[Rfam]
RNA sequence: AUAAAAAUUAAAUAGUGUAUUCGUAUAAAUUUGGGGAUAGGGCCCAGAAGUUUCUACCGGAACACCGUAAAUGAUCCGACUACGAUAUUCAUCUUGAAAAGC
Numbered sequence: 001a002u003a004a005a006a007a008u009u010a011a012a013u014a015g016u017g018u019a020u021u022c023g024u025a026u027a028a029a030u031u032u033g034g035g036g037a038u039a040g041g042g043c044c045c046a047g048a049a050g051u052u053u054c055u056a057c058c059g060g061a062a063c064a065c066c067g068u069a070a071a072u073g074a075u076c077c078g079a080c081u082a083c084g085a086u087a088u089u090c091a092u093c094u095u096g097a098a099a100a101g102c
Base pairs, nucleotide, nucleotide: 021085022084023083024082025081030048031047032046033045034044035043058078059077060076061075063073064072

Rfam assigns this 102-nucleotide RNA from Sporosarcina sp. Te-1 to the family "Purine riboswitch aptamer". Riboswitches are metabolite binding domains within certain messenger RNAs that serve as precision sensors for their corresponding targets. Allosteric rearrangement of mRNA structure is mediated by ligand binding, and this results in modulation of gene expression. A class of riboswitches that selectively recognises guanine and becomes saturated at concentrations as low as 5 nM. In Bacillus subtilis, this mRNA motif is located on at least five separate transcriptional units that together encode 17 genes that are mostly involved in purine transport and purine nucleotide biosynthesis. A search with the family's covariance model found it, with a score of 77 bits. The base pairs follow the family's consensus structure, which is taken from published work.